[Rfam]
RNA sequence: CCUCCGGUGAUGUAUCGCGGUGACUUUCGUUCUCCUGAGCUCGCUGAAGCUACGGAUUUCGGUCUGAGGAGG
Numbered sequence: 001c002c003u004c005c006g007g008u009g010a011u012g013u014a015u016c017g018c019g020g021u022g023a024c025u026u027u028c029g030u031u032c033u034c035c036u037g038a039g040c041u042c043g044c045u046g047a048a049g050c051u052a053c054g055g056a057u058u059u060c061g062g063u064c065u066g067a068g069g070a071g072g
Base pairs, nucleotide, nucleotide: 001072002071003070005068
The family of this 72-nucleotide RNA from Baryphthengus martii is "Small nucleolar RNA SNORD59". By type it is a C/D-box small nucleolar RNA. Its Rfam clan is "SNORD59 clan". On this family, see Galardi et al., Mol Cell Biol 2002: "Purified box C/D snoRNPs are able to reproduce site-specific 2'-O-methylation of target RNA in vitro". Rfam 15.1 lists 1,355 matches to the family in 620 species.